[Rfam]
RNA: TPP riboswitch aptamer (THI element)
RNA sequence: CCUCAUUCCGAGGGGGGCCCCGCGAGGGGGCUGAGAUUCCGUCCUCGAUAGCCGAUCUUUUGCAAGGUCGGCUAUCGCCACGGUGACCCUUGAACCUGAUCCGGGUCAUGCCGGCGGAGGGACGGGACAAUGGUGGCGA
Number, nucleotide and partner (000 for none) at each position: 001c000002c000003u000004c000005a000006u127007u126008c125009c124010g123011a090012g089013g088014g087015g000016g084017g031018c030019c029020c028021c027022g000023c000024g000025a000026g000027g021028g020029g019030g018031c017032u000033g000034a000035g000036a000037u000038u000039c083040c082041g081042u000043c000044c000045u000046c000047g000048a000049u000050a000051g000052c000053c000054g000055a000056u000057c000058u000059u000060u000061u000062g000063c000064a000065a000066g000067g000068u000069c000070g000071g000072c000073u000074a000075u000076c000077g000078c000079c000080a000081c041082g040083g039084u016085g000086a000087c014088c013089c012090u011091u000092g000093a000094a000095c120096c119097u118098g000099a000100u000101c114102c113103g112104g111105g000106u000107c000108a000109u000110g000111c104112c103113g102114g101115c000116g000117g000118a097119g096120g095121g000122a000123c010124g009125g008126g007127a006128c000129a000130a000131u000132g000133g000134u000135g000136g000137c000138g000139a000